[Rfam]
RNA sequence: GCACUGGUUUAGCUCAGUGGUUACUUCGAACUACUAUUCUCUCUGGAGAAUUCUGCUCUCUAUCCCUCCCGGGAUCGAACCUCGGGCGCUGUCCAGUGUUUUG
Numbered sequence: 001g002c003a004c005u006g007g008u009u010u011a012g013c014u015c016a017g018u019g020g021u022u023a024c025u026u027c028g029a030a031c032u033a034c035u036a037u038u039c040u041c042u043c044u045g046g047a048g049a050a051u052u053c054u055g056c057u058c059u060c061u062a063u064c065c066c067u068c069c070c071g072g073g074a075u076c077g078a079a080c081c082u083c084g085g086g087c088g089c090u091g092u093c094c095a096g097u098g099u100u101u102u103g
Stems, first nucleotide, its partner, number of pairs: 002098006012087004017083001019081002025079005
RNA: Vault RNA